Notes
c-di-GMP-I riboswitch aptamer: an 86-nucleotide sequence from Halalkalibacter akibai. NCBI's taxonomy places the organism under Bacteria, Bacillati, Bacillota, Caryophanales, Halalkalibacter akibai. GEMM was predicted in a large-scale screen for bacterial structured RNA regulatory elements.

RNA sequence: UAGACGAAAGGGCAAAAUCAUUGAAAAAUGAUGACGCAAAACUAUAGGAGCUAAGGGAAUGGAAACUAUGCUAGCCAGUUGCCGAU
Number, nucleotide and partner (000 for none) at each position: 001u000002a000003g000004a000005c000006g000007a000008a000009a000010g000011g000012g037013c036014a000015a000016a000017a032018u031019c030020a029021u028022u027023g000024a000025a000026a000027a022028a021029u020030g019031a018032u017033g000034a000035c000036g013037c012038a000039a000040a080041a079042c078043u077044a000045u000046a000047g076048g075049a072050g071051c070052u000053a000054a000055g000056g066057g000058a000059a000060u000061g000062g000063a000064a000065a000066c056067u000068a000069u000070g051071c050072u049073a000074g000075c048076c047077a043078g042079u041080u040081g000082c000083c000084g000085a000086u000